A member of the RNA family "Betaproteobacteria toxic small RNA" from Massilia sp. Root335, 68 nucleotides long.
RNA sequence: UGUCUCCUCCAGUUUUUCUCCGAAAAUCUGGAUUCAGCCCGCACCGACAAGGAUGCGGGCUUUUUUUU
Numbered sequence: 001u002g003u004c005u006c007c008u009c010c011a012g013u014u015u016u017u018c019u020c021c022g023a024a025a026a027u028c029u030g031g032a033u034u035c036a037g038c039c040c041g042c043a044c045c046g047a048c049a050a051g052g053a054u055g056c057g058g059g060c061u062u063u064u065u066u067u068u
Base pairs, nucleotide, nucleotide: 008032009031010030011029012028014026015025036061037060038059039058040057041056042055043054
Annotation: The family's consensus secondary structure was predicted with WAR. Overexpression in amino aid rich medium attenuates growth, suggesting role in repressing amino acid intake and metabolism. On this family, see Kimelman et al., Genome Res 2012: "A vast collection of microbial genes that are toxic to bacteria".